[Rfam]
RNA: MIR390 microRNA precursor family
Organism: Pyrus ussuriensis x Pyrus communis
RNA sequence: UGGAAGAACCUGUUAAGCUCAGGAGGGAUAGCGCCAUUCUCGGUUUGGUUUAACCACGUAUCGCGCUAUCCAUCUUGGGCUUCAUGGCUUCUUCUU
Dot-bracket structure: .........(.....(((((((((.(((((((((............................))))))))).))))))))).....).........